[Rfam]
RNA sequence: CAUGUGGACCGGGCCCCUCUGGCGAUCGACGCAUCGUGAUGUCGGACCACGAUG
Numbered sequence: 001c002a003u004g005u006g007g008a009c010c011g012g013g014c015c016c017c018u019c020u021g022g023c024g025a026u027c028g029a030c031g032c033a034u035c036g037u038g039a040u041g042u043c044g045g046a047c048c049a050c051g052a053u054g
Stems, first nucleotide, its partner, number of pairs: 006048002009045004022037005027031001

Rfam assigns this 54-nucleotide sequence from Paracoccus sp. S-4012 to the family "terC RNA".